This 82-nucleotide RNA sequence from Caenorhabditis briggsae belongs to the Rfam family "SmY spliceosomal RNA". The family has 61 seed sequences and 408 matches in Rfam 15.1. The match comes from Rfam's covariance-model search (56 bits). It is annotated as a spliceosomal small nuclear RNA.

RNA sequence: GCAUAAAAUCCUUCAUAGCUGGGCCUUCCUUAAGACCCUAAGCACAAUUUUUGGGCGCCUGUCGUGCAACAGCGGCGGGUGA
Numbered sequence: 001g002c003a004u005a006a007a008a009u010c011c012u013u014c015a016u017a018g019c020u021g022g023g024c025c026u027u028c029c030u031u032a033a034g035a036c037c038c039u040a041a042g043c044a045c046a047a048u049u050u051u052u053g054g055g056c057g058c059c060u061g062u063c064g065u066g067c068a069a070c071a072g073c074g075g076c077g078g079g080u081g082a
Base pairs, nucleotide, nucleotide: 021038022037023036025034026033027032056081057080058079059078060077061076062075063074064073